[Rfam]
A member of the RNA family "Small nucleolar RNA snoR111" from Arabis alpina, 131 nucleotides long. On this family, see Marker et al., Curr Biol 2002: "Experimental RNomics: identification of 140 candidates for small non-messenger RNAs in the plant Arabidopsis thaliana". Rfam links the family to the GO terms RNA processing and nucleolus. Pairs were carried over by alignment from the consensus structure, which was predicted with WAR. It scores 95 bits against the family's covariance model. Taxonomically the source falls in Arabis (Eukaryota, Embryophyta, Magnoliopsida, malvids).
RNA sequence: AAAAUCGGGCAAGAGAGAGUAACGGUGUCUCUGAGUCCUUGUUAAAACCGGCGAGGGAUAUCGAUUAGGCCGAGAUAUAUCGUUUCAGUCGUCACUUUUUGGUUGACGAUCUGAUUGUUGCUCGUCCACAG
Dot-bracket structure: ......((((..(((((........).))))...)))).............................((.((((....((((.....(((((((.((...)).))))))).)))).....)))).))....
Numbered sequence: 001a002a003a004a005u006c007g008g009g010c011a012a013g014a015g016a017g018a019g020u021a022a023c024g025g026u027g028u029c030u031c032u033g034a035g036u037c038c039u040u041g042u043u044a045a046a047a048c049c050g051g052c053g054a055g056g057g058a059u060a061u062c063g064a065u066u067a068g069g070c071c072g073a074g075a076u077a078u079a080u081c082g083u084u085u086c087a088g089u090c091g092u093c094a095c096u097u098u099u100u101g102g103u104u105g106a107c108g109a110u111c112u113g114a115u116u117g118u119u120g121c122u123c124g125u126c127c128a129c130a131g
Stems, first nucleotide, its partner, number of pairs: 007038004013031004017026001068127002071124004079115004088110007096102002